[Rfam]
Nucleotides: 093
Base pairs, nucleotide, nucleotide: 006088007087008086011083012082013081014080015079016078017077018076019075020074022073023072024070025069026068027067028066029065030064032062033061034060035059
Number, partner (000 for none) and nucleotide at each position: 001000a002000u003000g004000u005000c006088u007087c008086c009000u010000a011083g012082a013081g014080u015079u016078c017077c018076u019075c020074u021000g022073a023072g024070c025069a026068c027067u028066u029065c030064a031000u032062u033061g034060g035059g036000g037000a038000u039000a040000c041000a042000a043000u044000u045000u046000u047000u048000c049000u050000a051000a052000a053000u054000g055000a056000u057000u058000a059035u060034c061033c062032a063000c064030u065029g066028a067027a068026g069025u070024g071000u072023u073022u074020g075019g076018g077017g078016g079015a080014a081013c082012u083011c084000c085000c086008g087007g088006a089000c090000c091000c092000a093000u

The family of this 93-nucleotide RNA sequence is "mir-395 microRNA precursor family". The literature on the family includes a 2004 paper in Mol Cell by Jones-Rhoades and Bartel, "Computational Identification of Plant MicroRNAs and Their Targets, Including a Stress-Induced miRNA". About the family: mir-395 was identified in both Arabidopsis thaliana and Oryza sativa computationally and was later experimentally verified. mir-395 is thought to target mRNAs coding for ATP sulphurylases. The mature sequence is excised from the 3' arm of the hairpin. Rfam 15.1 lists 2,798 matches to the family in 234 species.